RNA sequence: UCUGUAGCGCUAAAGUGCUUAUAGUGCAGGUAGUGAUUCAUAAUCUACUGCAUUAGGAGCACUUGAAGUUCUACUAG
Numbered sequence: 001u002c003u004g005u006a007g008c009g010c011u012a013a014a015g016u017g018c019u020u021a022u023a024g025u026g027c028a029g030g031u032a033g034u035g036a037u038u039c040a041u042a043a044u045c046u047a048c049u050g051c052a053u054u055a056g057g058a059g060c061a062c063u064u065g066a067a068g069u070u071c072u073a074c075u076a077g
Stems, first nucleotide, its partner, number of pairs: 004074004009069003013064008022055006029049005
RNA: mir-17 microRNA precursor family
Organism: Podarcis muralis